[Rfam]
RNA sequence: UCUAGGCGUCGCGACUGGCGCAUUUGGGUGGGGCUACCACCGGGGAGCGGAAGGGGGCGAAGGCCGAGCGCCUGGGUCUUCGCA
Numbered sequence: 001u002c003u004a005g006g007c008g009u010c011g012c013g014a015c016u017g018g019c020g021c022a023u024u025u026g027g028g029u030g031g032g033g034c035u036a037c038c039a040c041c042g043g044g045g046a047g048c049g050g051a052a053g054g055g056g057g058c059g060a061a062g063g064c065c066g067a068g069c070g071c072c073u074g075g076g077u078c079u080u081c082g083c084a
Base pairs, nucleotide, nucleotide: 003056009050010049011048012047015044016043017072018071019070020069021068028040029039030038031037061079062078063077064076065075
The record is an 84-nucleotide RNA sequence from Nonomuraea dietziae, which matches "ZMP/ZTP riboswitch aptamer (pfl RNA motif)" in Rfam. Taxonomically the source falls in Nonomuraea (Bacteria, Bacillati, Actinomycetota, Streptosporangiaceae). The literature on the family includes a 2015 paper in Nat Struct Mol Biol by Jones and Ferre-D'Amare, "Recognition of the bacterial alarmone ZMP through long-distance association of two RNA subdomains". The base pairs follow the family's consensus structure, which is taken from published work.